[Rfam]
RNA sequence: UUAAGAGGAUGUCAAUGUCAUUACCACAAAUUGUGGAUAUGGGAAUACAUUUGUAGA
Numbered sequence: 001u002u003a004a005g006a007g008g009a010u011g012u013c014a015a016u017g018u019c020a021u022u023a024c025c026a027c028a029a030a031u032u033g034u035g036g037a038u039a040u041g042g043g044a045a046u047a048c049a050u051u052u053g054u055a056g057a
Stems, first nucleotide, its partner, number of pairs: 007052006018042004025035003
Background:
Shown here is a 57-nucleotide RNA sequence, a member of the family "Transposase-1 RNA".